[Rfam]
RNA sequence: GCAACGAAUGCCGAUGGAACUACAUGGUUCCGAAACCCGUGGUCGUGGGUUCGAGUCCCACCGGCCCCACUCGCUAACGCAAAAUGCGUACAAUGGGGCCGUAGCUCAGUAGGUAGAGCACGUAAACGUUUCAUCACUCCUUGUCGUUGCGUC
Numbered sequence: 001g002c003a004a005c006g007a008a009u010g011c012c013g014a015u016g017g018a019a020c021u022a023c024a025u026g027g028u029u030c031c032g033a034a035a036c037c038c039g040u041g042g043u044c045g046u047g048g049g050u051u052c053g054a055g056u057c058c059c060a061c062c063g064g065c066c067c068c069a070c071u072c073g074c075u076a077a078c079g080c081a082a083a084a085u086g087c088g089u090a091c092a093a094u095g096g097g098g099c100c101g102u103a104g105c106u107c108a109g110u111a112g113g114u115a116g117a118g119c120a121c122g123u124a125a126a127c128g129u130u131u132c133a134u135c136a137c138u139c140c141u142u143g144u145c146g147u148u149g150c151g152u153c
Stems, first nucleotide, its partner, number of pairs: 002149006013135007038122003045061005052113001062101008104119004
Dot-bracket structure: .((((((.....(((((((..................(((....(((((..[....)))))((((((((........................))))))))..((((.....]..)))))))......)))))))........))))))....
Rfam assigns this 153-nucleotide RNA from Aeoliella mucimassa to the family "Y RNA-like". From the family's description: In Deinococcus radiodurans Rsr is tethered via Y RNA to the exoribonuclease PNPase and channels single-stranded RNA into the PNPase cavity. Rsr and Y RNA enhance degradation of structured RNAs by PNPase. This role could be conserved, as Rsr and ncRNAs called YrlA and YrlB (Y RNA like) also associate with PNPase in an evolutionary distant bacterium Salmonella Typhimurium. The literature on the family includes a 2014 paper in RNA by Chen et al., "Bacterial noncoding Y RNAs are widespread and mimic tRNAs". By type it is a small RNA. The match comes from Rfam's covariance-model search (74 bits).